A member of the RNA family "TPP riboswitch aptamer (THI element)" from Actinobaculum suis, 107 nucleotides long.
RNA sequence: UCGAAACGACAGGGGAGCGCCACGGUAGGCGCUGAGAGUGCGAAAGAACGCAGACCCUCGAACCUGAUCCGGGUCAUGCCGGCGAAGGGAGUCGAGAUUUCUCUCCC
Numbered sequence: 001u002c003g004a005a006a007c008g009a010c011a012g013g014g015g016a017g018c019g020c021c022a023c024g025g026u027a028g029g030c031g032c033u034g035a036g037a038g039u040g041c042g043a044a045a046g047a048a049c050g051c052a053g054a055c056c057c058u059c060g061a062a063c064c065u066g067a068u069c070c071g072g073g074u075c076a077u078g079c080c081g082g083c084g085a086a087g088g089g090a091g092u093c094g095a096g097a098u099u100u101c102u103c104u105c106c107c
Stems, first nucleotide, its partner, number of pairs: 007094004011058004017032005039052004063088003069082004

Taxonomically the source falls in Actinobaculum (Bacteria, Bacillati, Actinomycetota, Actinomycetaceae). From the family's description: Vitamin B(1) in its active form thiamin pyrophosphate (TPP) is an essential coenzyme that is synthesised by coupling of pyrimidine and thiazole moieties in bacteria.